[Rfam]
RNA sequence: AUGUACCACGCGAGCACUGCGGUUCUGAGCGCGCCGUCCGCGCCCGCCUGGCGGUGGUGAGCGCAGUCGUUUUGUUAGUC
Dot-bracket structure: .(((.(.....).)))...((((.(.....).))))...........(((((((.................)))))))..
Shown here is an 80-nucleotide RNA sequence from Xanthomonas oryzae, a member of the family "Xanthomonas sRNA sX9". Lineage of the source: Bacteria > Lysobacterales > Lysobacteraceae > Xanthomonas > Xanthomonas oryzae pv. oryzae. The match comes from Rfam's covariance-model search (48 bits).